Shown here is a 132-nucleotide sequence from Paenactinomyces guangxiensis, a member of the family "Ribosomal protein L20 leader". A search with the family's covariance model found it, with a score of 70 bits.
RNA sequence: CCAUCCAAGAAGAGGCGCCCGCUUCUCACCUGAUCGACGCUUAUGGCAGUUGUCAGGUUAUGAAAUACUAAUUUCCAUCUGUAAAUUCCGGGAACUUAGUGUGGGCGCUUGCGCCCACACUUUUAAUUUUUA
Numbered sequence: 001c002c003a004u005c006c007a008a009g010a011a012g013a014g015g016c017g018c019c020c021g022c023u024u025c026u027c028a029c030c031u032g033a034u035c036g037a038c039g040c041u042u043a044u045g046g047c048a049g050u051u052g053u054c055a056g057g058u059u060a061u062g063a064a065a066u067a068c069u070a071a072u073u074u075c076c077a078u079c080u081g082u083a084a085a086u087u088c089c090g091g092g093a094a095c096u097u098a099g100u101g102u103g104g105g106c107g108c109u110u111g112c113g114c115c116c117a118c119a120c121u122u123u124u125a126a127u128u129u130u131u132a
Base pairs, nucleotide, nucleotide: 011026012025013024014023015022016021028058029057030056036051037050038049039047040046100119101118102117103116104115105114106113107112
It is annotated as a cis-regulatory leader.